[Rfam]
RNA sequence: AUCCGCCCGGAUGCAACACUCCACUCAUUGUUGCAUUUUCAGGGAAAGAAAAGGAGGAAAUCCGUCAGGCUUGCGGUGCGACAGUGUGGAGACCUGUCGUAAUGUGGCGCGGAAGAAAUCGCCGGUCACGAGAUGAUACAUUGCGGAGGCAGUAUCAUUAAAGUCUUAAUUUAUGUCA
Numbered sequence: 001a002u003c004c005g006c007c008c009g010g011a012u013g014c015a016a017c018a019c020u021c022c023a024c025u026c027a028u029u030g031u032u033g034c035a036u037u038u039u040c041a042g043g044g045a046a047a048g049a050a051a052a053g054g055a056g057g058a059a060a061u062c063c064g065u066c067a068g069g070c071u072u073g074c075g076g077u078g079c080g081a082c083a084g085u086g087u088g089g090a091g092a093c094c095u096g097u098c099g100u101a102a103u104g105u106g107g108c109g110c111g112g113a114a115g116a117a118a119u120c121g122c123c124g125g126u127c128a129c130g131a132g133a134u135g136a137u138a139c140a141u142u143g144c145g146g147a148g149g150c151a152g153u154a155u156c157a158u159u160a161a162a163g164u165c166u167u168a169a170u171u172u173a174u175g176u177c178a
Stems, first nucleotide, its partner, number of pairs: 006043002009040001010037009062076004067166006077101008086093002104129005110124003132159008142151003
Description: Shown here is a 178-nucleotide sequence, a member of the family "malK-I RNA". The family's consensus secondary structure is taken from published work. Rfam's curators put it in the seed alignment.